[Rfam]
RNA: Small nucleolar RNA snoR111
Organism: Gossypium hirsutum
RNA sequence: GAAGUGAGGAGACAUUUUAUUAUUGUGUCUCUUCCUUGAGGUAUAGUGAAAUCGAAGGCUGAGAUAUUGUUCCAGUCAUCAGUUUUCUCAAUUGAUAAAUUGGUUGUUGCUUGUACACAU
Number, nucleotide and partner (000 for none) at each position: 001g000002a000003a000004g037005u000006g035007a000008g033009g029010a028011g000012a026013c025014a024015u000016u000017u000018u000019a000020u000021u000022a000023u000024u014025g013026u012027g000028u010029c009030u000031c000032u000033u008034c000035c006036u000037u004038g000039a000040g000041g000042u000043a000044u000045a000046g000047u000048g000049a000050a000051a000052u000053c000054g000055a000056a000057g116058g000059c000060u113061g112062a111063g110064a000065u000066a104067u103068u102069g101070u000071u000072c000073c000074a000075g000076u098077c000078a096079u095080c094081a093082g000083u091084u090085u000086u000087c000088u000089c000090a084091a083092u000093u081094g080095a079096u078097a000098a076099a000100u000101u069102g068103g067104u066105u000106g000107u000108u000109g000110c063111u062112u061113g060114u000115a000116c057117a000118c000119a000120u000